RNA sequence: UCUCCCAUGAGAUAUGUUUGAUAUUCUUGGUUUUGAUGAAUACUAUUUCAAGUAACCAGAAGUCAAACAUAUAUUACGGUGGA
Numbered sequence: 001u002c003u004c005c006c007a008u009g010a011g012a013u014a015u016g017u018u019u020g021a022u023a024u025u026c027u028u029g030g031u032u033u034u035g036a037u038g039a040a041u042a043c044u045a046u047u048u049c050a051a052g053u054a055a056c057c058a059g060a061a062g063u064c065a066a067a068c069a070u071a072u073a074u075u076a077c078g079g080u081g082g083a
Base pairs, nucleotide, nucleotide: 005079006078008076009075012072013071014070015069016068017067018066019065020064021063022062024060025059029057030056031055032054
This 83-nucleotide sequence from Caligus rogercresseyi belongs to the Rfam family "mir-190 microRNA precursor family". Its Rfam clan is "mir-50 clan". A search with the family's covariance model found it, with a score of 51 bits. Gene Ontology terms of the family: RISC complex and miRNA-mediated post-transcriptional gene silencing.